[Rfam]
RNA sequence: CCAUCAUCACCAUCAUCCUGAUUAGUCUUUCAGGACGCUGGUCCGUGGAAGACGCUCAGAGAGUUCUUCCGGUGGACGACAGUCAAGGUACAUAAUCCAGCCCCCGGAAGAUCACUUUUCCGGGGGCUUUUUACU
Number, nucleotide and partner (000 for none) at each position: 001c000002c000003a000004u000005c000006a000007u000008c000009a042010c041011c040012a039013u000014c037015a000016u000017c034018c033019u032020g031021a030022u000023u000024a000025g000026u000027c000028u000029u000030u021031c020032a019033g018034g017035a000036c000037g014038c000039u012040g011041g010042u009043c000044c072045g000046u071047g070048g069049a068050a067051g066052a065053c000054g000055c000056u000057c000058a000059g000060a000061g000062a000063g000064u000065u052066c051067u050068u049069c048070c047071g046072g044073u000074g000075g000076a000077c000078g000079a000080c000081a000082g000083u000084c000085a000086a000087g000088g000089u000090a000091c000092a000093u000094a000095a132096u000097c000098c000099a128100g127101c126102c125103c124104c123105c122106g121107g120108a119109a118110g117111a000112u000113c000114a000115c000116u000117u110118u109119u108120c107121c106122g105123g104124g103125g102126g101127c100128u099129u000130u000131u000132u095133a000134c000135u000
RNA: Histidine operon leader